[Rfam]
RNA sequence: CUAGGGUACGGGGACAUGUACCCACAGACACCGGGCGGGAAGUUCGUCGGCUCCGUGUGCGCUCUGGCCGGGAUCUUGACCGUCGCCCUCCCGGUGCCUGUCAUCGUCACAAAC
Numbered sequence: 001c002u003a004g005g006g007u008a009c010g011g012g013g014a015c016a017u018g019u020a021c022c023c024a025c026a027g028a029c030a031c032c033g034g035g036c037g038g039g040a041a042g043u044u045c046g047u048c049g050g051c052u053c054c055g056u057g058u059g060c061g062c063u064c065u066g067g068c069c070g071g072g073a074u075c076u077u078g079a080c081c082g083u084c085g086c087c088c089u090c091c092c093g094g095u096g097c098c099u100g101u102c103a104u105c106g107u108c109a110c111a112a113a114c
Stems, first nucleotide, its partner, number of pairs: 002113001005110001008107004013102004018097004037077004049063003